This 143-nucleotide RNA from Mesorhizobium japonicum belongs to the Rfam family "Mesorhizobail RNA 10". Existence predicted via genome wide comparisons with 4 related strains. Analysed further by deep sequencing and Northern blot under various stress conditions. By type it is a small RNA. On this family, see Fuli et al., Front Microbiol 2017: "A Genome-Wide Prediction and Identification of Intergenic Small RNAs by Comparative Analysis in Mesorhizobium huakuii 7653R". Taxonomically the source falls in Mesorhizobium japonicum (Bacteria, Pseudomonadati, Pseudomonadota, Hyphomicrobiales). It is one of the family's seed sequences.
RNA sequence: CUCGUUCGCGGCAGCGUGCCCCGGUGCCGCCAUCAGAAGGGCCAGAAGAAUCGCCCGGCAGGCCCGGCCGGGCGGGAAAAGAAAGCGCGUCGAAGAAAAGCCCGCUGGCCCAGGAAAGCGCAUGGCGGGAAGUAUGGCCGAUA
Numbered sequence: 001c002u003c004g005u006u007c008g009c010g011g012c013a014g015c016g017u018g019c020c021c022c023g024g025u026g027c028c029g030c031c032a033u034c035a036g037a038a039g040g041g042c043c044a045g046a047a048g049a050a051u052c053g054c055c056c057g058g059c060a061g062g063c064c065c066g067g068c069c070g071g072g073c074g075g076g077a078a079a080a081g082a083a084a085g086c087g088c089g090u091c092g093a094a095g096a097a098a099a100g101c102c103c104g105c106u107g108g109c110c111c112a113g114g115a116a117a118g119c120g121c122a123u124g125g126c127g128g129g130a131a132g133u134a135u136g137g138c139c140g141a142u143a
Stems, first nucleotide, its partner, number of pairs: 003074005010069003014063001022061001023055004087138002100109003119127003